[Rfam]
RNA sequence: UUCCGAAGGGCGUGCUUCAUGACGAUGUUGCGAAACGCAACGCCUUUUAGGCGGGCGGUCCGGAUGUACUGGGCGGUCAUGACUUCGGCCAUCGACGCUCGAGUCAUCCGGGCAAUAUAGCCCAUGCCGUAGAGGGCGACGGUCAGCACCGGAAGGGUGAAGUUCUGAAGGUUUGCGCUGU
Numbered sequence: 001u002u003c004c005g006a007a008g009g010g011c012g013u014g015c016u017u018c019a020u021g022a023c024g025a026u027g028u029u030g031c032g033a034a035a036c037g038c039a040a041c042g043c044c045u046u047u048u049a050g051g052c053g054g055g056c057g058g059u060c061c062g063g064a065u066g067u068a069c070u071g072g073g074c075g076g077u078c079a080u081g082a083c084u085u086c087g088g089c090c091a092u093c094g095a096c097g098c099u100c101g102a103g104u105c106a107u108c109c110g111g112g113c114a115a116u117a118u119a120g121c122c123c124a125u126g127c128c129g130u131a132g133a134g135g136g137c138g139a140c141g142g143u144c145a146g147c148a149c150c151g152g153a154a155g156g157g158u159g160a161a162g163u164u165c166u167g168a169a170g171g172u173u174u175g176c177g178c179u180g181u
Stems, first nucleotide, its partner, number of pairs: 003142003010137002013134001015132002017129001022125001029124002032121001041112001043110001047106001049104001052101004056076001058074006083097001085095003146181003149177001150175004155166003
RNA: Ruegeria cis52 sRNA
Organism: Shimia thalassica